mir-1759 microRNA precursor family: a 74-nucleotide RNA from Irena cyanogastra.

RNA sequence: CCUGUUUUAGGGUAGGAGGAGAGAGGUGUUACCUUAUGGGCUGCCAUCUCUCCCACCCUCUCCUUUGCAGGAGC
Number, nucleotide and partner (000 for none) at each position: 001c000002c073003u072004g000005u070006u069007u000008u067009a066010g065011g063012g062013u000014a059015g058016g057017a000018g054019g053020a000021g052022a051023g050024a049025g048026g047027u046028g045029u000030u043031a042032c000033c040034u039035u000036a000037u000038g000039g034040g033041c000042u031043g030044c000045c028046a027047u026048c025049u024050c023051u022052c021053c019054c018055a000056c000057c016058c015059u014060c000061u000062c012063c011064u000065u010066u009067g008068c000069a006070g005071g000072a003073g002074c000
The base pairs follow the family's consensus structure, which was predicted with RNAalifold.